[Rfam]
RNA sequence: GGUCAUGAGUUCCAGUGACAAGCCCCGGCUUGCUGGACGGCAUCCCGCGCGCCGCGGGUGCCCCGGGUGACGACCUGCUCCACGCGGAGUGCGUGGAGAACGGCGGAUC
Numbered sequence: 001g002g003u004c005a006u007g008a009g010u011u012c013c014a015g016u017g018a019c020a021a022g023c024c025c026c027g028g029c030u031u032g033c034u035g036g037a038c039g040g041c042a043u044c045c046c047g048c049g050c051g052c053c054g055c056g057g058g059u060g061c062c063c064c065g066g067g068u069g070a071c072g073a074c075c076u077g078c079u080c081c082a083c084g085c086g087g088a089g090u091g092c093g094u095g096g097a098g099a100a101c102g103g104c105g106g107a108u109c
Stems, first nucleotide, its partner, number of pairs: 001075004009038001011037006021030002039062003044058003048054002078098009

Rfam assigns this 109-nucleotide RNA sequence from Sphaerimonospora thailandensis to the family "SAM (S-adenosyl methionine) riboswitch aptamer". The family's consensus secondary structure is taken from published work. Rfam describes the family as follows. SAM-IV is a mRNA element that regulates gene expression via direct sensing of S-adenosylmethionine (SAM or AdoMet). SAM-IV riboswitches share conserved nucleotide positions with the previously described SAM-I riboswitches sequence analysis and molecular recognition experiments suggest that SAM-I and SAM-IV riboswitches share similar ligand binding sites, but have different scaffolds. The match comes from Rfam's covariance-model search (87 bits). Lineage of the source: Bacteria > Bacillati > Actinomycetota > Streptosporangiales > Sphaerimonospora.